[Rfam]
RNA sequence: AUAACUUUAUCCUCGUGGCCAUGGGAUAAAUAAAAUACCCAGCAAAACCAAAGUUAGCACACCCUAGAAAAGUUCUAACAUGCUUACUAACCUAUGGCUUUGAUACCCGCUAUAUGGAAAAACUC
Dot-bracket structure: (((.(........((.(((((((((................(...((......((((......)))).....))....)...........))))))))).))......).)))............

Background: A member of the RNA family "MIR845_2 microRNA precursor family" from Vitis vinifera, 125 nucleotides long. The family has 2 seed sequences and 180 matches in Rfam 15.1. A search with the family's covariance model found it, with a score of 80 bits. The source organism's lineage runs through Eukaryota, Streptophyta, Embryophyta, Mesangiospermae and Vitis. Rfam links the family to the GO terms miRNA-mediated post-transcriptional gene silencing and RISC complex. On this family, see Jaillon et al., Nature 2007: "The grapevine genome sequence suggests ancestral hexaploidization in major angiosperm phyla".